Description
Shown here is a 142-nucleotide RNA from Rossellomorea aquimaris, a member of the family "Ribosomal protein L20 leader". A reference for the family is Zengel and Lindahl (1994), "Diverse mechanisms for regulating ribosomal protein synthesis in Escherichia coli", Prog Nucleic Acid Res Mol Biol. The organism belongs to Rossellomorea, within Bacteria. Gene Ontology term of the family: regulation of gene expression.

RNA sequence: UGGUACAAGAAGAAGCUACCCGCUUCUCACCUGAAUGACGCCCUCUUGAGCAGUUGCCAGGUAUGAUAAUGACUAUUAAAGCUUUUUAUAGAUGCUUUAUAAUCAGAUGCGGGUGUUUCGACACCCGCAUCUUUUUUUGUGC
Numbered sequence: 001u002g003g004u005a006c007a008a009g010a011a012g013a014a015g016c017u018a019c020c021c022g023c024u025u026c027u028c029a030c031c032u033g034a035a036u037g038a039c040g041c042c043c044u045c046u047u048g049a050g051c052a053g054u055u056g057c058c059a060g061g062u063a064u065g066a067u068a069a070u071g072a073c074u075a076u077u078a079a080a081g082c083u084u085u086u087u088a089u090a091g092a093u094g095c096u097u098u099a100u101a102a103u104c105a106g107a108u109g110c111g112g113g114u115g116u117u118u119c120g121a122c123a124c125c126c127g128c129a130u131c132u133u134u135u136u137u138u139g140u141g142c
Stems, first nucleotide, its partner, number of pairs: 011027006029062003037055003040051002108129009